[Rfam]
RNA: MIR847 microRNA precursor family
RNA sequence: GAAUAAGAUUCUUACAUCUUGAUGAAGAGGAAUGGGAAGCCGAAAUCUAAACUGAAACAGAGGCGUCACCCAAUUAUCAAUUGGUAAGUGAUAUCUAUGUUUCGAUCUGUAUCUCGGCCUUUCACUCCUCUUCUUCUUGAUGUAAGAAUUUGUUAUUC
Numbered sequence: 001g002a003a004u005a006a007g008a009u010u011c012u013u014a015c016a017u018c019u020u021g022a023u024g025a026a027g028a029g030g031a032a033u034g035g036g037a038a039g040c041c042g043a044a045a046u047c048u049a050a051a052c053u054g055a056a057a058c059a060g061a062g063g064c065g066u067c068a069c070c071c072a073a074u075u076a077u078c079a080a081u082u083g084g085u086a087a088g089u090g091a092u093a094u095c096u097a098u099g100u101u102u103c104g105a106u107c108u109g110u111a112u113c114u115c116g117g118c119c120u121u122u123c124a125c126u127c128c129u130c131u132u133c134u135u136c137u138u139g140a141u142g143u144a145a146g147a148a149u150u151u152g153u154u155a156u157u158c
Stems, first nucleotide, its partner, number of pairs: 001158006007150012021136002024133008033124005039118005055102005061096003065092005070084006